[Rfam]
Nucleotides: 072
Base pairs, nucleotide, nucleotide: 001071002070003069004068005067007065010024011023012022013021026042027041028040029039030038048064049063050062051061052060
Number, partner (000 for none) and nucleotide at each position: 001071g002070g003069g004068g005067u006000u007065c008000u009000a010024g011023c012022u013021c014000a015000u016000c017000g018000g019000u020000a021013g022012a023011g024010c025000g026042c027041u028040u029039g030038c031000u032000u033000a034000g035000c036000a037000u038030g039029c040028a041027a042026g043000a044000a045000g046000u047000a048064c049063u050062g051061g052060g053000u054000u055000c056000g057000a058000c059000u060052c061051c062050c063049a064048g065007g066000u067005a068004c069003u070002c071001c072000a